[Rfam]
The family of this 101-nucleotide sequence from Cytobacillus depressus is "Purine riboswitch aptamer". Rfam describes the family as follows. Riboswitches are metabolite binding domains within certain messenger RNAs that serve as precision sensors for their corresponding targets. Taxonomically the source falls in Cytobacillus (Bacteria, Bacillati, Bacilli, Caryophanales).
RNA sequence: UUCUAUUAACUGUAUAUAACCUGUAUAACCUCUAGAAUAUGGCUGGAGGGUCUCUACCAGGAACCAAGAAAAUCCUGACUACAGAAAAUGAACUUAUUCAU
Numbered sequence: 001u002u003c004u005a006u007u008a009a010c011u012g013u014a015u016a017u018a019a020c021c022u023g024u025a026u027a028a029c030c031u032c033u034a035g036a037a038u039a040u041g042g043c044u045g046g047a048g049g050g051u052c053u054c055u056a057c058c059a060g061g062a063a064c065c066a067a068g069a070a071a072a073u074c075c076u077g078a079c080u081a082c083a084g085a086a087a088a089u090g091a092a093c094u095u096a097u098u099c100a101u
Base pairs, nucleotide, nucleotide: 021084022083023082024081025080029049030048031047032046033045034044035043058077059076060075061074062073
Record summary:
The family's consensus secondary structure is taken from published work.